A member of the RNA family "eL15-Euryarchaeota ribosomal protein leader", 51 nucleotides long. On this family, see Eckert and Weinberg, BMC Microbiol 2020: "Discovery of 20 novel ribosomal leader candidates in bacteria and archaea".
RNA sequence: CCUGUACUCACAGGACGGGAUGUGAACCUGAAUCCAGGUUUGAACCACUCA
Numbered sequence: 001c002c003u004g005u006a007c008u009c010a011c012a013g014g015a016c017g018g019g020a021u022g023u024g025a026a027c028c029u030g031a032a033u034c035c036a037g038g039u040u041u042g043a044a045c046c047a048c049u050c051a
Stems, first nucleotide, its partner, number of pairs: 001014005017046002024041005